RNA sequence: CGUCUGUGAUGAUAUCUUUAAGGCUUGUUUCUCAAAACAUUCGCAGUGGCCGCCCAAGAGCUUUCGCCUACGCCAGGCUUGAGAGCUAAUGCUGUUUUAUCAUUCCUUGGAUGUCUGAGACG
Numbered sequence: 001c002g003u004c005u006g007u008g009a010u011g012a013u014a015u016c017u018u019u020a021a022g023g024c025u026u027g028u029u030u031c032u033c034a035a036a037a038c039a040u041u042c043g044c045a046g047u048g049g050c051c052g053c054c055c056a057a058g059a060g061c062u063u064u065c066g067c068c069u070a071c072g073c074c075a076g077g078c079u080u081g082a083g084a085g086c087u088a089a090u091g092c093u094g095u096u097u098u099a100u101c102a103u104u105c106c107u108u109g110g111a112u113g114u115c116u117g118a119g120a121c122g
Stems, first nucleotide, its partner, number of pairs: 001122004060086006
Small nucleolar RNA SNORD14: a 122-nucleotide RNA sequence from Cicer arietinum.
On this family, see Samarsky et al., Nucleic Acids Res 1996: "An essential domain in Saccharomyces cerevisiae U14 snoRNA is absent in vertebrates, but conserved in other yeasts".
From the family's description: U14 small nucleolar RNA (U14 snoRNA) is required for early cleavages of eukaryotic precursor rRNAs. In yeasts, this molecule possess a stem-loop region (known as the Y-domain) which is essential for function. A similar structure, but with a different consensus sequence, is found in plants, but is absent in vertebrates.
The source organism's lineage runs through Eukaryota, Tracheophyta, Fabales, Hologalegina and Cicer.
By type it is a C/D-box small nucleolar RNA.